[Rfam]
RNA sequence: UUCGGGAAAUGAUGCAAACCUAUAUCAGUUUAUGUUUCAGACGCUCUGUUGCUCUGCUGAACAUCUUUUUUUUGCACGUCAGUCUGAUCCCAAA
Numbered sequence: 001u002u003c004g005g006g007a008a009a010u011g012a013u014g015c016a017a018a019c020c021u022a023u024a025u026c027a028g029u030u031u032a033u034g035u036u037u038c039a040g041a042c043g044c045u046c047u048g049u050u051g052c053u054c055u056g057c058u059g060a061a062c063a064u065c066u067u068u069u070u071u072u073u074g075c076a077c078g079u080c081a082g083u084c085u086g087a088u089c090c091c092a093a094a
Base pairs, nucleotide, nucleotide: 001094002093004091005090006089007088